[Rfam]
RNA sequence: AGCAAAAUGAGGAAGCUACACCAUCUGAAACUAACUGUGCUGUUGUCUGUUAAUGAUUCUUGGAUGGUCUUCAAAGUUCUCUGAUUGCU
Numbered sequence: 001a002g003c004a005a006a007a008u009g010a011g012g013a014a015g016c017u018a019c020a021c022c023a024u025c026u027g028a029a030a031c032u033a034a035c036u037g038u039g040c041u042g043u044u045g046u047c048u049g050u051u052a053a054u055g056a057u058u059c060u061u062g063g064a065u066g067g068u069c070u071u072c073a074a075a076g077u078u079c080u081c082u083g084a085u086u087g088c089u
Stems, first nucleotide, its partner, number of pairs: 001089005